[Rfam]
RNA sequence: UGGGAGGGCGAUACCCAGGCAGGCCUCAGCAGUGUCCUGUCUGCCACAGAUCCUCCCUACAUUAUACUUGCCUUUCGAUGACCGGGGCGAACUGAGAGAAAUCGCAACGGACAGAUACGAGGCUGACAUCU
Numbered sequence: 001u002g003g004g005a006g007g008g009c010g011a012u013a014c015c016c017a018g019g020c021a022g023g024c025c026u027c028a029g030c031a032g033u034g035u036c037c038u039g040u041c042u043g044c045c046a047c048a049g050a051u052c053c054u055c056c057c058u059a060c061a062u063u064a065u066a067c068u069u070g071c072c073u074u075u076c077g078a079u080g081a082c083c084g085g086g087g088c089g090a091a092c093u094g095a096g097a098g099a100a101a102u103c104g105c106a107a108c109g110g111a112c113a114g115a116u117a118c119g120a121g122g123c124u125g126a127c128a129u130c131u
Base pairs, nucleotide, nucleotide: 002057003056004055005054006053007052016043017042018041022037023036025034068125070123071122072121073120074119082110083109084108087105088104089103090102

This 131-nucleotide RNA from Anguilla anguilla belongs to the Rfam family "Small Cajal body specific RNA 8". Rfam classes the family as a small Cajal body RNA. The base pairs follow the family's consensus structure, which is taken from published work. Its family is annotated with RNA processing, Cajal body and nucleolus in the Gene Ontology. Taxonomically the source falls in Anguilla (Eukaryota, Vertebrata, Elopocephalai, Anguillidae). A search with the family's covariance model found it, with a score of 117 bits.